A member of the RNA family "ASdes TB sRNA" from Actinacidiphila rubida, 65 nucleotides long.
[Rfam]
RNA sequence: AGCUCCACGGGUCCACCGCGCGCGGUCAGCGGGUAGUCGCGCAUGGCGAUCGCGUGCCGGCCCUC
Numbered sequence: 001a002g003c004u005c006c007a008c009g010g011g012u013c014c015a016c017c018g019c020g021c022g023c024g025g026u027c028a029g030c031g032g033g034u035a036g037u038c039g040c041g042c043a044u045g046g047c048g049a050u051c052g053c054g055u056g057c058c059g060g061c062c063c064u065c
Stems, first nucleotide, its partner, number of pairs: 004060002008056002011027001015026004032053001035050001037049004

Rfam classes the family as a small RNA. The source organism's lineage runs through Bacteria, Bacillati, Actinomycetes, Streptomycetaceae and Actinacidiphila. The base pairs follow the family's consensus structure, which is taken from published work.